[Rfam]
RNA sequence: AUACUAGUCAGGCUCUGGCUAUAGCCCAGGUCUCAGUUGGUCCUGAGUAUAACCAAAGCCCCACUGUACU
Dot-bracket structure: ......((..((((.(((.((((..((((.......)))).......)))).))).))))..))......
Numbered sequence: 001a002u003a004c005u006a007g008u009c010a011g012g013c014u015c016u017g018g019c020u021a022u023a024g025c026c027c028a029g030g031u032c033u034c035a036g037u038u039g040g041u042c043c044u045g046a047g048u049a050u051a052a053c054c055a056a057a058g059c060c061c062c063a064c065u066g067u068a069c070u
Stems, first nucleotide, its partner, number of pairs: 007064002011060004016055003020051004026040004

Shown here is a 70-nucleotide RNA sequence from Microtus ochrogaster, a member of the family "mir-344 microRNA precursor family". Taxonomically the source falls in Microtus (Eukaryota, Vertebrata, Euteleostomi, Tetrapoda). Rfam links the family to the GO terms RISC complex and miRNA-mediated post-transcriptional gene silencing. On this family, see Linsen et al., BMC Genomics 2010: "Small RNA expression and strain specificity in the rat". It scores 53 bits against the family's covariance model.